[Rfam]
RNA sequence: CGCCCCGGUCCGACCUGCGCUCCCUAUGCACUACCCACUGGGGAGAAAGGACCCCGCCAAGCCCCACCCCUCCCUCCCGCCGGGCAAACUCACUCCCGCGAGUGAAUAUGCCAAGUGGGCUGGAUUCGCGGCCGGUUGGCUGCCCUAGGCUCAGCACCAGCAGCACACAGGCAUCCCCAGACAUGGGACGGCCCUCGCCGGGACUGGCAUCCCAUGCGAGGGCCUGACCACCGAGGAAGAAAGCCGCUUCCCG
Numbered sequence: 001c002g003c004c005c006c007g008g009u010c011c012g013a014c015c016u017g018c019g020c021u022c023c024c025u026a027u028g029c030a031c032u033a034c035c036c037a038c039u040g041g042g043g044a045g046a047a048a049g050g051a052c053c054c055c056g057c058c059a060a061g062c063c064c065c066a067c068c069c070c071u072c073c074c075u076c077c078c079g080c081c082g083g084g085c086a087a088a089c090u091c092a093c094u095c096c097c098g099c100g101a102g103u104g105a106a107u108a109u110g111c112c113a114a115g116u117g118g119g120c121u122g123g124a125u126u127c128g129c130g131g132c133c134g135g136u137u138g139g140c141u142g143c144c145c146u147a148g149g150c151u152c153a154g155c156a157c158c159a160g161c162a163g164c165a166c167a168c169a170g171g172c173a174u175c176c177c178c179a180g181a182c183a184u185g186g187g188a189c190g191g192c193c194c195u196c197g198c199c200g201g202g203a204c205u206g207g208c209a210u211c212c213c214a215u216g217c218g219a220g221g222g223c224c225u226g227a228c229c230a231c232c233g234a235g236g237a238a239g240a241a242a243g244c245c246g247c248u249u250c251c252c253g
Base pairs, nucleotide, nucleotide: 007232008231009230017076019074090105091104092103093102094101095100119155120154121153122152123151190224191223192222193221194220196218197217198216200213201212202211203210235251236250237249238248239247

The family of this 253-nucleotide RNA from Streptomyces argyrophylli is "Streptomyces sRNA 4677". About the family: Located in the intergenic region between anti-sigma factor SCO4677 gene and a putative regulatory protein gene SCO4676. scr4677 expression requires the SCO4677 activity and scr4677 sRNA itself seem to affect the levels of the SCO4676-associated transcripts. Pairs were carried over by alignment from the consensus structure.